Shown here is a 138-nucleotide sequence from Gymnodraco acuticeps, a member of the family "Small nucleolar RNA SNORA57". Rfam links the family to the GO terms RNA processing and nucleolus. Pairs were carried over by alignment from the consensus structure, which was predicted with PFOLD. NCBI's taxonomy places the organism under Eukaryota, Chordata, Gnathostomata, Teleostei, Gymnodraco.
[Rfam]
RNA sequence: CCUCCAUUUCUUGGCAUGCAUGUGGUUGUUCAGUACUCAUGUGUGCAAUGUACGGAGGGAAACUAAAGGCAGUGCUAUGUCUUCGGUACCGGUGUGUGUUAUCGUCUGCCAGUUCUAUCCUCAAUCGCUGUCACAUUC
Numbered sequence: 001c002c003u004c005c006a007u008u009u010c011u012u013g014g015c016a017u018g019c020a021u022g023u024g025g026u027u028g029u030u031c032a033g034u035a036c037u038c039a040u041g042u043g044u045g046c047a048a049u050g051u052a053c054g055g056a057g058g059g060a061a062a063c064u065a066a067a068g069g070c071a072g073u074g075c076u077a078u079g080u081c082u083u084c085g086g087u088a089c090c091g092g093u094g095u096g097u098g099u100u101a102u103c104g105u106c107u108g109c110c111a112g113u114u115c116u117a118u119c120c121u122c123a124a125u126c127g128c129u130g131u132c133a134c135a136u137u138c
Stems, first nucleotide, its partner, number of pairs: 001058005015045006022038001024037003070130005089112001091110004